[Rfam]
RNA sequence: CCGGGAUUUGCAGGCUCCCGGGGGUGGCGCCCGCCACCGAGACGGUGUCCGUCCAAGGCCUGC
Numbered sequence: 001c002c003g004g005g006a007u008u009u010g011c012a013g014g015c016u017c018c019c020g021g022g023g024g025u026g027g028c029g030c031c032c033g034c035c036a037c038c039g040a041g042a043c044g045g046u047g048u049c050c051g052u053c054c055a056a057g058g059c060c061u062g063c
Stems, first nucleotide, its partner, number of pairs: 001021006010063005041053005
Shown here is a 63-nucleotide RNA, a member of the family "chrB-b RNA".
Rfam classes the family as a cis-regulatory element.